[Rfam]
RNA sequence: AUUAGGAGAAUGGCAAAUCAGAUUUUUCGUCCUGGUUUUUAGCAUUUUUAGUUGGGUUUGAAUUUUUUCAGGAGGAAAAAGUUGAAAAUCAGGAAAAAAAAUCUGAUUUGUCAUUAUCGUAUU
Numbered sequence: 001a002u003u004a005g006g007a008g009a010a011u012g013g014c015a016a017a018u019c020a021g022a023u024u025u026u027u028c029g030u031c032c033u034g035g036u037u038u039u040u041a042g043c044a045u046u047u048u049u050a051g052u053u054g055g056g057u058u059u060g061a062a063u064u065u066u067u068u069c070a071g072g073a074g075g076a077a078a079a080a081g082u083u084g085a086a087a088a089u090c091a092g093g094a095a096a097a098a099a100a101a102u103c104u105g106a107u108u109u110g111u112c113a114u115u116a117u118c119g120u121a122u123u
Base pairs, nucleotide, nucleotide: 001123003121004120006118007117009115010114011113012112013111014110015109016108017107018106019105020104021103022102023101024100025099026098027097030094031093032092033091034090035089036088037087038086039085041083042082045079046078047077048076
Dot-bracket structure: (.((.((.(((((((((((((((((((..((((((((((.((..((((...........................))))..)).))))))))))..))))))))))))))))))).)).)).)
The family of this 123-nucleotide RNA sequence from Gossypium mustelinum is "MIR7504 microRNA precursor family". The base pairs follow the family's consensus structure, which was predicted with RNAalifold. The family has 8 seed sequences and 7,343 matches in Rfam 15.1. Taxonomically the source falls in Gossypium (Eukaryota, Tracheophyta, Pentapetalae, Malvoideae).